[Rfam]
FMN riboswitch aptamer (RFN element): a 147-nucleotide sequence from Devosia geojensis. Pairs were carried over by alignment from the consensus structure, which is taken from published work. It scores 115 bits against the family's covariance model. Rfam describes the family as follows. The RFN element is a highly conserved domain that is found frequently in the 5'-untranslated regions of prokaryotic mRNAs that encode for flavin mononucleotide (FMN) biosynthesis and transport proteins. This element is a metabolite-dependent riboswitch that directly binds FMN in the absence of proteins. In Bacillus subtilis, the riboswitch most likely controls gene expression by causing premature transcription termination within the 5' untranslated region of the ribDEAHT operon and precluding access to the ribosome-binding site of ypaA mRNA.The FMN riboswitch structure, reported in present an FMN-bound six-stem junction, adopts a butterfly-like scaffold, stapled together by opposingly directed but nearly identically folded peripheral domains. The organism belongs to Devosia, within Bacteria.
RNA sequence: GUACGUUCUCAGGGCGGGGUGGAAGUCCCCACCGGCGGUAAUGGCGAAAGCCUGAGCCCGCGAGCGCCGGACCUUUCGGGGUUCGGGUCAGCAGAUUCGGUGCGAUUCCGAAGCCGACGGUCAUAGUCCGGAUGAGAGAGAACGGGA
Numbered sequence: 001g002u003a004c005g006u007u008c009u010c011a012g013g014g015c016g017g018g019g020u021g022g023a024a025g026u027c028c029c030c031a032c033c034g035g036c037g038g039u040a041a042u043g044g045c046g047a048a049a050g051c052c053u054g055a056g057c058c059c060g061c062g063a064g065c066g067c068c069g070g071a072c073c074u075u076u077c078g079g080g081g082u083u084c085g086g087g088u089c090a091g092c093a094g095a096u097u098c099g100g101u102g103c104g105a106u107u108c109c110g111a112a113g114c115c116g117a118c119g120g121u122c123a124u125a126g127u128c129c130g131g132a133u134g135a136g137a138g139a140g141a142a143c144g145g146g147a
Stems, first nucleotide, its partner, number of pairs: 004144007017029003031127002033116002035061004056114002064092002096112005118130003